[Rfam]
RAGATH-18 RNA: a 63-nucleotide RNA sequence.

RNA sequence: CCUCUGGAGAAUCAUACCAAUGAAAGUAGCUUUAUAGCAAAAUCGGAUUUGAUGAAUGAGGAA
Numbered sequence: 001c002c003u004c005u006g007g008a009g010a011a012u013c014a015u016a017c018c019a020a021u022g023a024a025a026g027u028a029g030c031u032u033u034a035u036a037g038c039a040a041a042a043u044c045g046g047a048u049u050u051g052a053u054g055a056a057u058g059a060g061g062a063a
Stems, first nucleotide, its partner, number of pairs: 001061004009050005021045003029038003

It is annotated as a small RNA.
Rfam describes the family as follows. Actinobacteria, Firmicutes, Fusobacteria, Thermotogae (1 example).